[Rfam]
RNA sequence: GCGUCGUCGAGAUAUGUUUGAUAUUCUUGGUUGUUUGUUUUGGAUCACCCGGGAAUCAAACAUAUUACUCUACGACC
Numbered sequence: 001g002c003g004u005c006g007u008c009g010a011g012a013u014a015u016g017u018u019u020g021a022u023a024u025u026c027u028u029g030g031u032u033g034u035u036u037g038u039u040u041u042g043g044a045u046c047a048c049c050c051g052g053g054a055a056u057c058a059a060a061c062a063u064a065u066u067a068c069u070c071u072a073c074g075a076c077c
Stems, first nucleotide, its partner, number of pairs: 009069001011066012024053002029050002032047002
Overview:
A member of the RNA family "mir-190 microRNA precursor family" from Bombyx mori, 77 nucleotides long. Gene Ontology terms of the family: RISC complex and miRNA-mediated post-transcriptional gene silencing.